The record is a 102-nucleotide sequence from Piscibacillus halophilus, which matches "Purine riboswitch aptamer" in Rfam.
A search with the family's covariance model found it, with a score of 84 bits.
RNA sequence: AUAAGAAACGGUGAUACACUUCAUAUAUCCUUGCCAAUACGGGGCAAGAGUCUCUACCGGGUUGCCGUAAACAACCUGACUAUGAAGGCAUUAAUUAGUCUU
Dot-bracket structure: ..................(((((((....((((((.......)))))).........(((((((.......)))))))..)))))))...............

Lineage of the source: Bacteria > Bacillota > Caryophanales > Bacillaceae > Piscibacillus.